[Rfam]
RNA sequence: GCGGCCGCGGCGGGUAAGAUGGUGGCGCCCCGGGCACCGCCUCUUCCGCCCGGGCGGGCGUCGCA
Dot-bracket structure: ((((((.((.(((((..((.((.((((.(....)...)))))).)).)))).).)).).))))).
The family of this 65-nucleotide sequence from Pipistrellus kuhlii is "mir-718 microRNA precursor family". The base pairs follow the family's consensus structure, which was predicted with RNAalifold. Its family is annotated with RISC complex and miRNA-mediated post-transcriptional gene silencing in the Gene Ontology.